[Rfam]
RNA sequence: UUUUCAGUUUUCCUCGAUAGUUAACUGCAGACGAUUCCAUAAUUCGACAGUUAACUGCCGAUGAACAU
Numbered sequence: 001u002u003u004u005c006a007g008u009u010u011u012c013c014u015c016g017a018u019a020g021u022u023a024a025c026u027g028c029a030g031a032c033g034a035u036u037c038c039a040u041a042a043u044u045c046g047a048c049a050g051u052u053a054a055c056u057g058c059c060g061a062u063g064a065a066c067a068u
Base pairs, nucleotide, nucleotide: 011064012063014061015060016059018057019056020055021054022053023052024051025050026049027048